Shown here is a 102-nucleotide RNA from Lachnospiraceae bacterium 28-4, a member of the family "THF (Tetrahydrofolate) riboswitch aptamer". The source organism's lineage runs through Bacteria, Bacillati, Clostridia, Lachnospirales and Lachnospiraceae.

RNA sequence: AGCAGAGUAGAAAUCUGUGCGUUAAGUGCCGCAUGAACGGGGAGUUGUCAUGCGGACGAAAAGCCGGUAAGGCUUGCGGUACGGAAUUCGCAUCCCGCUGCU
Numbered sequence: 001a002g003c004a005g006a007g008u009a010g011a012a013a014u015c016u017g018u019g020c021g022u023u024a025a026g027u028g029c030c031g032c033a034u035g036a037a038c039g040g041g042g043a044g045u046u047g048u049c050a051u052g053c054g055g056a057c058g059a060a061a062a063g064c065c066g067g068u069a070a071g072g073c074u075u076g077c078g079g080u081a082c083g084g085a086a087u088u089c090g091c092a093u094c095c096c097g098c099u100g101c102u
Stems, first nucleotide, its partner, number of pairs: 001102005010089003014085006020078003026057002029055008040095003044091001061075004

The base pairs follow the family's consensus structure, which is taken from published work.